Shown here is a 75-nucleotide RNA sequence from Kitasatospora sp. MMS16-BH015, a member of the family "ASpks TB sRNA".

[Rfam]
RNA sequence: CUUCACCGAGCCCACCCAGACCGGCCGGCCCGCAGGCCGCCCCUGGCCGUAGGUGGCCAGCAGCGCCUGGGCCUC
Numbered sequence: 001c002u003u004c005a006c007c008g009a010g011c012c013c014a015c016c017c018a019g020a021c022c023g024g025c026c027g028g029c030c031c032g033c034a035g036g037c038c039g040c041c042c043c044u045g046g047c048c049g050u051a052g053g054u055g056g057c058c059a060g061c062a063g064c065g066c067c068u069g070g071g072c073c074u075c
Base pairs, nucleotide, nucleotide: 016024017023031071033069038065039064043060044059045058047056048055049054
Source information
Pairs were carried over by alignment from the consensus structure, which is taken from published work.